The family of this 140-nucleotide RNA from Cicer arietinum is "small nucleolar RNA snoR134". It is annotated as an H/ACA-box small nucleolar RNA. NCBI's taxonomy places the organism under Eukaryota, Spermatophyta, Fabales, Papilionoideae, Cicer. On this family, see Chen and Wu, Nucleic Acids Res 2009: "Mining small RNA sequencing data: a new approach to identify small nucleolar RNAs in Arabidopsis".
[Rfam]
RNA sequence: ACGCACGAUGCAACCCCAGGCUUCUCUGAAUAAUGUAUGAGGUGAAAGCCCCAUUGCUCGUCCAAAAUCAAUGUCUUUCGUGUUGCAGUUCAGUCUUUACUUAUUCCACGAUUGAAUCUAUCGAUUCAAAAUCUUCAAUU
Numbered sequence: 001a002c003g004c005a006c007g008a009u010g011c012a013a014c015c016c017c018a019g020g021c022u023u024c025u026c027u028g029a030a031u032a033a034u035g036u037a038u039g040a041g042g043u044g045a046a047a048g049c050c051c052c053a054u055u056g057c058u059c060g061u062c063c064a065a066a067a068u069c070a071a072u073g074u075c076u077u078u079c080g081u082g083u084u085g086c087a088g089u090u091c092a093g094u095c096u097u098u099a100c101u102u103a104u105u106c107c108a109c110g111a112u113u114g115a116a117u118c119u120a121u122c123g124a125u126u127c128a129a130a131a132u133c134u135u136c137a138a139u140u
Stems, first nucleotide, its partner, number of pairs: 003063001005061004010057002019050004023045002026042002073133001076130003081123002084120002088118001092113003
Dot-bracket structure: ..(.((((.((.......((((((.((.............)).)).)))).....)))))).).........(..(((..((.((..(...(((................)))....))).))....)))..).......